[Rfam]
This 87-nucleotide sequence from SAR86 cluster bacterium SAR86B belongs to the Rfam family "tRNA". NCBI's taxonomy places the organism under Bacteria, Pseudomonadati, Pseudomonadota, Gammaproteobacteria, SAR86 cluster. A search with the family's covariance model found it, with a score of 51 bits. Rfam classes the family as a transfer RNA.
RNA sequence: GGAGAGAUGGCAGAGUCUGGUUUAAUGCACCAUCUUGGAAGGGUGGCGUACGGCAACGUACCGAGGGUUCGAAUCCCUCUCUCUCCG
Dot-bracket structure: (((((((..(((.............))).(((((.......)))))................(((((.......)))))))))))).